[Rfam]
RNA sequence: UUAGUUCGUGUAAACAUCCUACACUCAGCUUUUAUCCCAUGAAAUGGCUGGGGGAUGGAAGUUCACUUCAACUGA
Numbered sequence: 001u002u003a004g005u006u007c008g009u010g011u012a013a014a015c016a017u018c019c020u021a022c023a024c025u026c027a028g029c030u031u032u033u034a035u036c037c038c039a040u041g042a043a044a045u046g047g048c049u050g051g052g053g054g055a056u057g058g059a060a061g062u063u064c065a066c067u068u069c070a071a072c073u074g075a
Base pairs, nucleotide, nucleotide: 002074003073004072005071006070008068010066011065013063014062015061017059018058019057022054024052025051026050027049028048029047030046